[Rfam]
RNA sequence: AGGCUCAGAGAGAGAGGUAGAGACUGAUCUGCAGCCUCCGUGGCAGCUGUUGAUCAGCUGUUACCUCUCUCUUUCUCUCCU
Numbered sequence: 001a002g003g004c005u006c007a008g009a010g011a012g013a014g015a016g017g018u019a020g021a022g023a024c025u026g027a028u029c030u031g032c033a034g035c036c037u038c039c040g041u042g043g044c045a046g047c048u049g050u051u052g053a054u055c056a057g058c059u060g061u062u063a064c065c066u067c068u069c070u071c072u073u074u075c076u077c078u079c080c081u
Base pairs, nucleotide, nucleotide: 008073009072010071011070012069013068014067015066016065017064018063019062020061022059024057025056026055027054028053029052032049033048034047035046

mir-574 microRNA precursor family: an 81-nucleotide RNA sequence from Cnephaeus nilssonii. A search with the family's covariance model found it, with a score of 96 bits. The source organism's lineage runs through Eukaryota, Craniata, Gnathostomata, Amniota and Cnephaeus. The family has 6 seed sequences and 4,084 matches in Rfam 15.1. On this family, see Lui et al., Cancer Res 2007: "Patterns of known and novel small RNAs in human cervical cancer".